[Rfam]
mir-1302 microRNA precursor family: a 52-nucleotide RNA sequence from Vicugna pacos. Rfam links the family to the GO terms RISC complex and miRNA-mediated post-transcriptional gene silencing. The match comes from Rfam's covariance-model search (66 bits). Lineage of the source: Eukaryota > Bilateria > Mammalia > Eutheria > Vicugna.
RNA sequence: AUUUUAGUAUAAGUGUGUCCUGUGCAACAUUUGGGACAUACUUAUACUAAAC
Numbered sequence: 001a002u003u004u005u006a007g008u009a010u011a012a013g014u015g016u017g018u019c020c021u022g023u024g025c026a027a028c029a030u031u032u033g034g035g036a037c038a039u040a041c042u043u044a045u046a047c048u049a050a051a052c
Stems, first nucleotide, its partner, number of pairs: 006048007014040003018036004022031001